[Rfam]
RNA sequence: CACAGGAUGCCGAAUUCGGGUCCUGUAUGAACCACUCGCUGAAUGUCAGGAGAUAGCAAAAUGACU
Numbered sequence: 001c002a003c004a005g006g007a008u009g010c011c012g013a014a015u016u017c018g019g020g021u022c023c024u025g026u027a028u029g030a031a032c033c034a035c036u037c038g039c040u041g042a043a044u045g046u047c048a049g050g051a052g053a054u055a056g057c058a059a060a061a062u063g064a065c066u
Stems, first nucleotide, its partner, number of pairs: 002026007010019003030054001035052003039049004

The family of this 66-nucleotide RNA sequence from Stutzerimonas stutzeri is "Repression of heat shock gene expression (ROSE) element". Gene Ontology terms of the family: regulation of translation and response to temperature stimulus. The base pairs follow the family's consensus structure. It is one of the family's seed sequences. NCBI's taxonomy places the organism under Bacteria, Pseudomonadati, Gammaproteobacteria, Stutzerimonas, Stutzerimonas stutzeri.